RNA sequence: CCACCGUCAGGCCACAAAUUUGUGCCACCCCGCUGGAGGGUGCGGCCUGCGCAGCCCCAGGAGGACUGGGU
Numbered sequence: 001c002c003a004c005c006g007u008c009a010g011g012c013c014a015c016a017a018a019u020u021u022g023u024g025c026c027a028c029c030c031c032g033c034u035g036g037a038g039g040g041u042g043c044g045g046c047c048u049g050c051g052c053a054g055c056c057c058c059a060g061g062a063g064g065a066c067u068g069g070g071u
Base pairs, nucleotide, nucleotide: 006043008049009048010047011046012045013024014023015022016021026042027041028040029039031038056070057069058068059067060066

Overview
Flavivirus 3'UTR stem loop IV: a 71-nucleotide RNA sequence from Orthoflavivirus japonicum. The base pairs follow the family's consensus structure, which is taken from published work. By type it is a cis-regulatory element. The literature on the family includes a 2014 paper in Science by Chapman et al., "The structural basis of pathogenic subgenomic flavivirus RNA (sfRNA) production". The source organism's lineage runs through Viruses, Riboviria, Orthornavirae, Orthoflavivirus and Orthoflavivirus japonicum. Flavivirus 3' stem-loop IV (Flavivirus SLIV) is a conserved RNA that confers resistance to Xrn1 exonuclease.